[Rfam]
Histidine operon leader: a 127-nucleotide RNA sequence from Vibrio ruber. Taxonomically the source falls in Vibrio ruber (Bacteria, Pseudomonadati, Vibrionales, Vibrionaceae). The base pairs follow the family's consensus structure, which is taken from published work.

RNA sequence: UCAUCACCAUCAUCAUCCCUAAGUUAUCUUUCGGGAGAUGAGCGCAUACCCGGGAGAUAAAAUUCUCCCGGAGGUGAAAUGAAGAUAUUCAAUGAACCCUCGGGAGUAAUUCCGAGGGUUUUUUUAU
Numbered sequence: 001u002c003a004u005c006a007c008c009a010u011c012a013u014c015a016u017c018c019c020u021a022a023g024u025u026a027u028c029u030u031u032c033g034g035g036a037g038a039u040g041a042g043c044g045c046a047u048a049c050c051c052g053g054g055a056g057a058u059a060a061a062a063u064u065c066u067c068c069c070g071g072a073g074g075u076g077a078a079a080u081g082a083a084g085a086u087a088u089u090c091a092a093u094g095a096a097c098c099c100u101c102g103g104g105a106g107u108a109a110u111u112c113c114g115a116g117g118g119u120u121u122u123u124u125u126a127u
Base pairs, nucleotide, nucleotide: 009047010046011040012039013038014037017035018034019033021031049071050070052069053068054067055066056065057064091124092123094121095120096119097118098117099116100115101114102113103112104111105110